[Rfam]
RNA sequence: CUGCUGCGGGCAGAUGUAGUGGAUGUGGGUGUCGACGCCGCCGGCCGUGACGAUCUUGCCCUCGCCGGCCACGACGUCGGUGCAGCUCCCCACGACCAUGUUGGGGCUGACGCCGUCCAUGACGUCGGGGCUGCCGGCCUUGCCGAUGCCGACAAUGACGCCGUCCUUGACGCCAAUGUCGGCCUUGUACACGCCGGUCCAGUCGACAAUCAGGGCGUUGGUGACGACGACGUCGAGCGUCUCGUCGUCGCGGCGCCCGGUGGCCUGGCCCAUGCC
Numbered sequence: 001c002u003g004c005u006g007c008g009g010g011c012a013g014a015u016g017u018a019g020u021g022g023a024u025g026u027g028g029g030u031g032u033c034g035a036c037g038c039c040g041c042c043g044g045c046c047g048u049g050a051c052g053a054u055c056u057u058g059c060c061c062u063c064g065c066c067g068g069c070c071a072c073g074a075c076g077u078c079g080g081u082g083c084a085g086c087u088c089c090c091c092a093c094g095a096c097c098a099u100g101u102u103g104g105g106g107c108u109g110a111c112g113c114c115g116u117c118c119a120u121g122a123c124g125u126c127g128g129g130g131c132u133g134c135c136g137g138c139c140u141u142g143c144c145g146a147u148g149c150c151g152a153c154a155a156u157g158a159c160g161c162c163g164u165c166c167u168u169g170a171c172g173c174c175a176a177u178g179u180c181g182g183c184c185u186u187g188u189a190c191a192c193g194c195c196g197g198u199c200c201a202g203u204c205g206a207c208a209a210u211c212a213g214g215g216c217g218u219u220g221g222u223g224a225c226g227a228c229g230a231c232g233u234c235g236a237g238c239g240u241c242u243c244g245u246c247g248u249c250g251c252g253g254c255g256c257c258c259g260g261u262g263g264c265c266u267g268g269c270c271c272a273u274g275c276c
Stems, first nucleotide, its partner, number of pairs: 002154002005151002008066002012062002020043003024040002027038001029036002047059003067144002071140001073138001075136001082134007091124001097121002100116002103113001160269004166260002169257001171255004182216006197204001219250003224245001226243002230240003